[Rfam]
RNA sequence: UGAAGAAAAAGCCAAACCUGUUGAAAGACUGAGACGUAAAGUUCCUGGUCUAAGGCUAUAGCAAUGAUGACCGAACUACCGUG
Numbered sequence: 001u002g003a004a005g006a007a008a009a010a011g012c013c014a015a016a017c018c019u020g021u022u023g024a025a026a027g028a029c030u031g032a033g034a035c036g037u038a039a040a041g042u043u044c045c046u047g048g049u050c051u052a053a054g055g056c057u058a059u060a061g062c063a064a065u066g067a068u069g070a071c072c073g074a075a076c077u078a079c080c081g082u083g
Base pairs, nucleotide, nucleotide: 013036018031020029021028022027040077041076042075043074045073047071048068049067050066055062056061
Dot-bracket structure: ............(....(.(((....))).)....)...((((.(.((((....((....))...)))..).)))))......
This 83-nucleotide RNA from Pelotomaculum isophthalicicum belongs to the Rfam family "c-di-GMP-I riboswitch aptamer". It scores 52 bits against the family's covariance model. The source organism's lineage runs through Bacteria, Bacillati, Bacillota, Clostridia and Pelotomaculum isophthalicicum. Its family is annotated with cyclic-di-GMP binding in the Gene Ontology.